RNA sequence: CCCCCCGAAACGGCCCGCAGGUCGGCCCGGCCGGAGGUAGGUGGCGGGGUAGAGCACUGAUUCCCCGGUUAGGGGCCGAGAGGCCCCGCCGGGGAGUCAAACUCCGAACCCGCCACCGCCGUAGAAGGCCGGAGUUGGGGCCGGCGGGUAAGCCGCCGGUCUGAGAGGGGAAUAACCCAGACCGGGGUUAAGGCCCCAAAGUGCCGGCUAAGUGUUAAAUAGAAAGGGAGUCCCCGGCCGAAGACAGCGGGGAGGUAGGCUUAGAAGCAGCCAUCCUUUAAAGAGUGCGUAACAGCUCACCCGUCGAGGUCGGGGGCCCCGAAAAUGGACGGGGCUGAAGCCGGCCGCCGAGACCCCGGGGCCGCGGGCCGAUGGCCCGCGGGCCGGUAGGGGGGCGCCCCGGCGGCUCAGAAGCCGGGCCGUGAGGUCCGGUGGAGCCGUCGGGGACGAGAAU
Numbered sequence: 001c002c003c004c005c006c007g008a009a010a011c012g013g014c015c016c017g018c019a020g021g022u023c024g025g026c027c028c029g030g031c032c033g034g035a036g037g038u039a040g041g042u043g044g045c046g047g048g049g050u051a052g053a054g055c056a057c058u059g060a061u062u063c064c065c066c067g068g069u070u071a072g073g074g075g076c077c078g079a080g081a082g083g084c085c086c087c088g089c090c091g092g093g094g095a096g097u098c099a100a101a102c103u104c105c106g107a108a109c110c111c112g113c114c115a116c117c118g119c120c121g122u123a124g125a126a127g128g129c130c131g132g133a134g135u136u137g138g139g140g141c142c143g144g145c146g147g148g149u150a151a152g153c154c155g156c157c158g159g160u161c162u163g164a165g166a167g168g169g170g171a172a173u174a175a176c177c178c179a180g181a182c183c184g185g186g187g188u189u190a191a192g193g194c195c196c197c198a199a200a201g202u203g204c205c206g207g208c209u210a211a212g213u214g215u216u217a218a219a220u221a222g223a224a225a226g227g228g229a230g231u232c233c234c235c236g237g238c239c240g241a242a243g244a245c246a247g248c249g250g251g252g253a254g255g256u257a258g259g260c261u262u263a264g265a266a267g268c269a270g271c272c273a274u275c276c277u278u279u280a281a282a283g284a285g286u287g288c289g290u291a292a293c294a295g296c297u298c299a300c301c302c303g304u305c306g307a308g309g310u311c312g313g314g315g316g317c318c319c320c321g322a323a324a325a326u327g328g329a330c331g332g333g334g335c336u337g338a339a340g341c342c343g344g345c346c347g348c349c350g351a352g353a354c355c356c357c358g359g360g361g362c363c364g365c366g367g368g369c370c371g372a373u374g375g376c377c378c379g380c381g382g383g384c385c386g387g388u389a390g391g392g393g394g395g396c397g398c399c400c401c402g403g404c405g406g407c408u409c410a411g412a413a414g415c416c417g418g419g420c421c422g423u424g425a426g427g428u429c430c431g432g433u434g435g436a437g438c439c440g441u442c443g444g445g446g447a448c449g450a451g452a453a454u
Stems, first nucleotide, its partner, number of pairs: 001395006011024005026134001027132006036120003040117008052105001053103002059098010072087006138162009167178003182359007192349003201346001203345006226320003230317010247304005253277003258272003278282001283298001287296002360385002363381005396449001398446010414433008
Dot-bracket structure: ((((((....(((((....))))).(((((((...(((.((((((((....(((....((((((((((...((((((....)))))).))))))))))...)).)....)))))))))))......)))))).)...(((((((((.......)))))))))....(((......)))...(((((((...(((......(.((((((.................(((.((((((((((.......(((((.(((..(((.........)))..)))(...)(...((......)).).)))))...)))))))))))))...................))))))))))...)))))))((.(((((.........)))))..))....))))))(.((((((((((......((((((((....))))))))...))))))))))..).....